[Rfam]
RNA sequence: ACCACUGAGCCAUCUCUCCAGCUCCACAUAAAUUGUAUUCUUAAAAAAAAUGGGGGCUGGAGAGAUGGCUCAGCGGU
Numbered sequence: 001a002c003c004a005c006u007g008a009g010c011c012a013u014c015u016c017u018c019c020a021g022c023u024c025c026a027c028a029u030a031a032a033u034u035g036u037a038u039u040c041u042u043a044a045a046a047a048a049a050a051u052g053g054g055g056g057c058u059g060g061a062g063a064g065a066u067g068g069c070u071c072a073g074c075g076g077u
Base pairs, nucleotide, nucleotide: 002076003075005073006072007071008070009069010068011067012066013065014064015063016062017061018060019059020058021057022056023055024054

The family of this 77-nucleotide RNA sequence from Peromyscus maniculatus is "mir-3473 microRNA precursor family". Its family is annotated with cellular response to mechanical stimulus, RISC complex and miRNA-mediated post-transcriptional gene silencing in the Gene Ontology. A search with the family's covariance model found it, with a score of 74 bits. The organism belongs to Peromyscus maniculatus, within Eukaryota.